[Rfam]
RNA sequence: ACUCUUUAGCGUUAGGCUUUGAUUUAUAGCCUUGUCGAGCGUUUCGCCAGACACUAACUUAUUGAGUACU
Number, nucleotide and partner (000 for none) at each position: 001a000002c000003u000004c000005u066006u065007u064008a063009g062010c000011g000012u000013u000014a000015g000016g000017c000018u000019u000020u000021g000022a000023u000024u000025u000026a000027u000028a000029g000030c000031c000032u000033u053034g052035u051036c050037g000038a000039g047040c046041g045042u000043u000044u000045c041046g040047c039048c000049a000050g036051a035052c034053a033054c000055u000056a000057a000058c000059u000060u000061a000062u009063u008064g007065a006066g005067u000068a000069c000070u000
Shown here is a 70-nucleotide sequence from Salmonella enterica, a member of the family "Retron msr RNA". The sequence is in the family's curated seed alignment. NCBI's taxonomy places the organism under Bacteria, Pseudomonadota, Gammaproteobacteria, Enterobacterales, Salmonella enterica subsp. enterica. The literature on the family includes a 2003 paper in FEMS Microbiol Lett by Ahmed and Shimamoto, "msDNA-St85, a multicopy single-stranded DNA isolated from Salmonella enterica serovar Typhimurium LT2 with the genomic analysis of its retron". About the family: Retron elements are found in a wide range of mainly Gram-negative bacteria. The retron encodes a reverse transcriptase that is responsible for the production of a small satellite DNA called msDNA (multi-copy single-stranded DNA). msDNA has both DNA (encoded by the retron msd gene) and RNA (encoded by the msr gene) components. The 5' end of msDNA is linked to an internal guanosine residue of the RNA strand by a 2'-5' linkage.